Plastid-psbM 3UTR RNA: an 89-nucleotide RNA from Rhododendron williamsianum.
The literature on the family includes a 2023 paper in Plant Commun by Richter et al., "Retrograde signaling in plants: A critical review focusing on the GUN pathway and beyond".
NCBI's taxonomy places the organism under Eukaryota, Embryophyta, Spermatophyta, Ericales, Rhododendron.

Nucleotides: 089
Stems, first nucleotide, its partner, number of pairs: 007054001009052015
Number, partner (000 for none) and nucleotide at each position: 001000g002000a003000u004000c005000u006000a007054a008000u009052a010051g011050u012049a013048u014047g015046g016045u017044a018043g019042a020041a021040a022039g023038a024000a025000a026000u027000a028000u029000a030000u031000g032000a033000a034000u035000c036000g037000u038023u039022c040021u041020u042019u043018c044017u045016a046015u047014c048013a049012u050011a051010c052009u053000c054007u055000c056000u057000a058000u059000u060000a061000u062000g063000g064000u065000a066000u067000u068000u069000u070000u071000a072000g073000a074000g075000u076000g077000u078000a079000u080000a081000c082000u083000c084000g085000a086000u087000a088000a089000u